RNA of unknown function RUF4: a 276-nucleotide sequence from Drosophila albomicans. NCBI's taxonomy places the organism under Eukaryota, Arthropoda, Mandibulata, Muscomorpha, Drosophila.
RNA sequence: ACGUGUAUUACAUACAUGACGUGUAUGACAUACAUGACAUGUAUGACAUACAUGUGUAUGACAUGUUUGACAUACAUGACAUGUAAUACACGUCGUGUAUGUCAUACAAGUCAUGUAUGUAAUACACGUCAUACACAUGUAUGUCAUACAUGUCAUGUAUGUCAUACACGUCAUGUAUGUAAUACACGUCAUGUAUGUAAUACACGUCAUUCACAUGUAUGUCAUACAUGUCACACACGUCAUACAUGUCAUACACGUCAUGUAUGUCAUACAUGU
Numbered sequence: 001a002c003g004u005g006u007a008u009u010a011c012a013u014a015c016a017u018g019a020c021g022u023g024u025a026u027g028a029c030a031u032a033c034a035u036g037a038c039a040u041g042u043a044u045g046a047c048a049u050a051c052a053u054g055u056g057u058a059u060g061a062c063a064u065g066u067u068u069g070a071c072a073u074a075c076a077u078g079a080c081a082u083g084u085a086a087u088a089c090a091c092g093u094c095g096u097g098u099a100u101g102u103c104a105u106a107c108a109a110g111u112c113a114u115g116u117a118u119g120u121a122a123u124a125c126a127c128g129u130c131a132u133a134c135a136c137a138u139g140u141a142u143g144u145c146a147u148a149c150a151u152g153u154c155a156u157g158u159a160u161g162u163c164a165u166a167c168a169c170g171u172c173a174u175g176u177a178u179g180u181a182a183u184a185c186a187c188g189u190c191a192u193g194u195a196u197g198u199a200a201u202a203c204a205c206g207u208c209a210u211u212c213a214c215a216u217g218u219a220u221g222u223c224a225u226a227c228a229u230g231u232c233a234c235a236c237a238c239g240u241c242a243u244a245c246a247u248g249u250c251a252u253a254c255a256c257g258u259c260a261u262g263u264a265u266g267u268c269a270u271a272c273a274u275g276u
Stems, first nucleotide, its partner, number of pairs: 003127005010120009023107007034082003038078006047069002050066006133207002137196007144186001148176005154170001156168005197205002214230005239272002241266008250257001